[Rfam]
RNA sequence: CAAUGAAGGAAGCAUGGUAAUGUAUACAUAAAUUGAUUUGGAUCUUUAGGCCUGCCCUCUCUGAUACCAUUUGGCUUUGAUUUGGGGGUAUGAUUCUAUAACAAAAUG
Numbered sequence: 001c002a003a004u005g006a007a008g009g010a011a012g013c014a015u016g017g018u019a020a021u022g023u024a025u026a027c028a029u030a031a032a033u034u035g036a037u038u039u040g041g042a043u044c045u046u047u048a049g050g051c052c053u054g055c056c057c058u059c060u061c062u063g064a065u066a067c068c069a070u071u072u073g074g075c076u077u078u079g080a081u082u083u084g085g086g087g088g089u090a091u092g093a094u095u096c097u098a099u100a101a102c103a104a105a106a107u108g
Stems, first nucleotide, its partner, number of pairs: 012025001014023002040091001042089003050081001052079001054075003
The record is a 108-nucleotide RNA from Rhododendron simsii, which matches "Small nucleolar RNA snoR100" in Rfam. The literature on the family includes a 2002 paper in Curr Biol by Marker et al., "Experimental RNomics: identification of 140 candidates for small non-messenger RNAs in the plant Arabidopsis thaliana". It is annotated as an H/ACA-box small nucleolar RNA. The family's consensus secondary structure was predicted with WAR. The match comes from Rfam's covariance-model search (91 bits). Rfam 15.1 lists 1,851 matches to the family in 220 species.